[Rfam]
RNA sequence: CGGCGACCGACGAGUGACCAACUGCAGACGGAAGCGAGGGGGAAGCCGUGGGAAGAGUGCUCAGGUAGAAAAGCGUAGCGAAGGGCCGGCACAAACGCAGUUCGCUACCCACCGAGGGUGAGGGGAUACCACCCGAGGGGCCAGAUGGAAUCCCGGUCUGGACGCCUGAGAGGCUCGAAAAAAAAAGA
Numbered sequence: 001c002g003g004c005g006a007c008c009g010a011c012g013a014g015u016g017a018c019c020a021a022c023u024g025c026a027g028a029c030g031g032a033a034g035c036g037a038g039g040g041g042g043a044a045g046c047c048g049u050g051g052g053a054a055g056a057g058u059g060c061u062c063a064g065g066u067a068g069a070a071a072a073g074c075g076u077a078g079c080g081a082a083g084g085g086c087c088g089g090c091a092c093a094a095a096c097g098c099a100g101u102u103c104g105c106u107a108c109c110c111a112c113c114g115a116g117g118g119u120g121a122g123g124g125g126a127u128a129c130c131a132c133c134c135g136a137g138g139g140g141c142c143a144g145a146u147g148g149a150a151u152c153c154c155g156g157u158c159u160g161g162a163c164g165c166c167u168g169a170g171a172g173g174c175u176c177g178a179a180a181a182a183a184a185a186a187g188a
Base pairs, nucleotide, nucleotide: 001048002047003046004045011038014035015034060170061169062168063167064166065165075108076107077106078105079104080103081102082101116134117133118132119131120130123154124153125152126151127150141161142160143159144158145157146156
Rfam assigns this 188-nucleotide sequence to the family "IMES-1 RNA motif".
Rfam classes the family as a non-coding RNA gene.
The literature on the family includes a 2009 paper in Nature by Weinberg et al., "Exceptional structured noncoding RNAs revealed by bacterial metagenome analysis".